[Rfam]
Rfam assigns this 112-nucleotide RNA sequence from Pseudoduganella namucuonensis to the family "Guanidine-I riboswitch aptamer". The base pairs follow the family's consensus structure. Rfam describes the family as follows. This family represents a conserved RNA structure found upstream of the ykkC and yxkD genes in Bacillus subtilis and related genes in other bacteria. The match comes from Rfam's covariance-model search (83 bits).
RNA sequence: GAGCAUGGAAGCUAGGGUUCCGGUCGCCGUCGCGCGAUGCCUGGUCCGAGAGCAGCCGGCUCCGUCCCAUUAAGGCGACGGGGCUCCACGGAGGGAUAAAAGCCCGGGAGGU
Numbered sequence: 001g002a003g004c005a006u007g008g009a010a011g012c013u014a015g016g017g018u019u020c021c022g023g024u025c026g027c028c029g030u031c032g033c034g035c036g037a038u039g040c041c042u043g044g045u046c047c048g049a050g051a052g053c054a055g056c057c058g059g060c061u062c063c064g065u066c067c068c069a070u071u072a073a074g075g076c077g078a079c080g081g082g083g084c085u086c087c088a089c090g091g092a093g094g095g096a097u098a099a100a101a102g103c104c105c106g107g108g109a110g111g112u
Stems, first nucleotide, its partner, number of pairs: 007057002011053002015047002020044002022041001023038005058085008087107001089110001093105003